[Rfam]
Source information
A member of the RNA family "mir-544 microRNA precursor family" from Odobenus rosmarus, 99 nucleotides long. On this family, see Chiang et al., Genes Dev 2010: "Mammalian microRNAs: experimental evaluation of novel and previously annotated genes". The base pairs follow the family's consensus structure, which was predicted with RNAalifold.
RNA sequence: AUCACCUAGGGAUCUUGUUAAAAUGCAGAUUCUAAUUUUGGCAGGUCUUGGGAGGGGCAUGAUAUUCUGCAUUACUAAUAAGGUCCCAGGUGGUGCUGA
Number, nucleotide and partner (000 for none) at each position: 001a000002u000003c092004a091005c090006c000007u000008a000009g086010g085011g084012a000013u000014c082015u081016u080017g079018u078019u077020a076021a000022a073023a072024u000025g070026c069027a068028g067029a066030u000031u064032c000033u062034a000035a000036u000037u000038u000039u000040g000041g000042c000043a000044g000045g000046u000047c000048u000049u000050g000051g000052g000053a000054g000055g000056g000057g000058c000059a000060u000061g000062a033063u000064a031065u000066u029067c028068u027069g026070c025071a000072u023073u022074a000075c000076u020077a019078a018079u017080a016081a015082g014083g000084u011085c010086c009087c000088a000089g000090g005091u004092g003093g000094u000095g000096c000097u000098g000099a000